[Rfam]
RNA sequence: GGAAAAUUGAAGAGAGCUGUCCCUAGUACGAGAGGACCGGGAUGGACGAACCGCUGGUGUAUCAGUUGUCUCGCCAGAGGCACCGCUGAGUAGCUAAGUUCGGAAGGGAUAAACGCUGAAAGCAUCUAAGCGUGAAGCCUCCUUUAAGACUAGUUUUCCCACCGAAAGGGUAAGGCACCAUGAAGAAGACGUGGUAGAUAGGCCAGAGGUGUAAGUGUGGCGACACAUUCAGCUGACUGGUACUAAUAAGCCGAGG
Numbered sequence: 001g002g003a004a005a006a007u008u009g010a011a012g013a014g015a016g017c018u019g020u021c022c023c024u025a026g027u028a029c030g031a032g033a034g035g036a037c038c039g040g041g042a043u044g045g046a047c048g049a050a051c052c053g054c055u056g057g058u059g060u061a062u063c064a065g066u067u068g069u070c071u072c073g074c075c076a077g078a079g080g081c082a083c084c085g086c087u088g089a090g091u092a093g094c095u096a097a098g099u100u101c102g103g104a105a106g107g108g109a110u111a112a113a114c115g116c117u118g119a120a121a122g123c124a125u126c127u128a129a130g131c132g133u134g135a136a137g138c139c140u141c142c143u144u145u146a147a148g149a150c151u152a153g154u155u156u157u158c159c160c161a162c163c164g165a166a167a168g169g170g171u172a173a174g175g176c177a178c179c180a181u182g183a184a185g186a187a188g189a190c191g192u193g194g195u196a197g198a199u200a201g202g203c204c205a206g207a208g209g210u211g212u213a214a215g216u217g218u219g220g221c222g223a224c225a226c227a228u229u230c231a232g233c234u235g236a237c238u239g240g241u242a243c244u245a246a247u248a249a250g251c252c253g254a255g256g
Stems, first nucleotide, its partner, number of pairs: 001159008011145004017045007047102005055096003062089005067082006106140003113133005162169002171254001174252003178194005199245003202241005208234002215228005

The record is a 256-nucleotide part of an RNA from Clostridium sp. 'deep sea', which matches "Bacterial large subunit ribosomal RNA" in Rfam. Taxonomically the source falls in Clostridium (Bacteria, Bacillati, Bacillota, Clostridiaceae). A search with the family's covariance model found it, with a score of 2818 bits. Its Rfam clan is "LSU clan".